[Rfam]
RNA: ssNA-helicase RNA
RNA sequence: UUCCCAAAGGGUAAGUAUUACCCUUUGGGAACCAUGUAGCAGGCAGCA
Numbered sequence: 001u002u003c004c005c006a007a008a009g010g011g012u013a014a015g016u017a018u019u020a021c022c023c024u025u026u027g028g029g030a031a032c033c034a035u036g037u038a039g040c041a042g043g044c045a046g047c048a
Base pairs, nucleotide, nucleotide: 001031002030003029004028005027006026007025008024009023010022011021